[Rfam]
RNA sequence: GCGCGUCCGCGUGACUGGCGCCGAGUGGAUCACCACGGGGAAGCGCGGACGGUUCCGCCGCGCGCCUGGGCAGCCCCU
Number, nucleotide and partner (000 for none) at each position: 001g000002c000003g000004c051005g050006u049007c048008c047009g046010c045011g044012u043013g000014a000015c040016u039017g066018g065019c064020g063021c062022c000023g000024a000025g036026u035027g034028g033029a000030u000031c000032a000033c028034c027035a026036c025037g000038g000039g016040g015041a000042a000043g012044c011045g010046c009047g008048g007049a006050c005051g004052g000053u000054u000055c073056c000057g071058c070059c069060g000061c000062g021063c020064g019065c018066c017067u000068g000069g059070g058071c057072a000073g055074c000075c000076c000077c000078u000

The record is a 78-nucleotide sequence from Sphingomonas sp. Ant20, which matches "ZMP/ZTP riboswitch aptamer (pfl RNA motif)" in Rfam. A search with the family's covariance model found it, with a score of 61 bits.